This 110-nucleotide sequence from Acholeplasma brassicae belongs to the Rfam family "SAM riboswitch aptamer (S box leader)". It scores 51 bits against the family's covariance model. Lineage of the source: Bacteria > Bacillati > Mollicutes > Acholeplasmatales > Acholeplasma.
RNA sequence: CUACCAUAAAGAGAAGGUAAGAGACAAGCUCGAUGACCCUUCAGCAACCUGCAGACGCAAGGUGCUAAAGCUUGAAUGAUGGGAAACACUAAACCCAUCAUAGAUGGUUU
Number, nucleotide and partner (000 for none) at each position: 001c000002u000003a108004c107005c106006a105007u104008a000009a000010a000011g000012a000013g042014a041015a040016g039017g038018u000019a000020a000021g031022a030023g029024a000025c000026a000027a000028g071029c023030u022031c021032g000033a000034u000035g000036a000037c000038c017039c016040u015041u014042c013043a066044g065045c064046a063047a000048c062049c061050u059051g058052c057053a000054g000055a000056c000057g052058c051059a050060a000061g049062g048063u046064g045065c044066u043067a000068a000069a000070g000071c028072u000073u000074g000075a000076a000077u000078g099079a098080u097081g096082g095083g094084a000085a000086a000087c000088a000089c000090u000091a000092a000093a000094c083095c082096c081097a080098u079099c078100a000101u000102a000103g000104a007105u006106g005107g004108u003109u000110u000